Rfam assigns this 79-nucleotide RNA sequence to the family "DUF3085 RNA".

RNA sequence: CGGUAGCUGGAUCAAACCGGGCUCUCCCGAGCCGAACCCAGCCUUCAAUGUCCGCUCAGGACAACCACAACCCCGUGGG
Number, nucleotide and partner (000 for none) at each position: 001c019002g018003g017004u016005a000006g042007c041008u040009g039010g038011a000012u000013c000014a000015a000016a004017c003018c002019g001020g033021g032022c031023u030024c000025u000026c000027c000028c000029g000030a023031g022032c021033c020034g000035a000036a000037c000038c010039c009040a008041g007042c006043c000044u000045u000046c000047a000048a000049u000050g062051u061052c060053c059054g000055c000056u000057c000058a000059g053060g052061a051062c050063a000064a000065c000066c000067a000068c000069a000070a000071c000072c000073c000074c000075g000076u000077g000078g000079g000